[Rfam]
RNA sequence: UCCUGCACCCAAAAUGACUGCAGGCUGUCUUUACCCUGGUCGUUGAUAGUGCAGGGAGAGGAAUCACUGACAGAAGUUUCUGUGUGUGAAGGGUCCAGCUGGGCGUCCCCUUCCAAACCCUGGAGCUUUCCCACA
Numbered sequence: 001u002c003c004u005g006c007a008c009c010c011a012a013a014a015u016g017a018c019u020g021c022a023g024g025c026u027g028u029c030u031u032u033a034c035c036c037u038g039g040u041c042g043u044u045g046a047u048a049g050u051g052c053a054g055g056g057a058g059a060g061g062a063a064u065c066a067c068u069g070a071c072a073g074a075a076g077u078u079u080c081u082g083u084g085u086g087u088g089a090a091g092g093g094u095c096c097a098g099c100u101g102g103g104c105g106u107c108c109c110c111u112u113c114c115a116a117a118c119c120c121u122g123g124a125g126c127u128u129u130c131c132c133a134c135a
Base pairs, nucleotide, nucleotide: 001056002055003054004053005052006051007050008049013044014043015042016041017040018039019038020037023035024034069130070129072127073126084118085117087115088114089112090111091110092109093108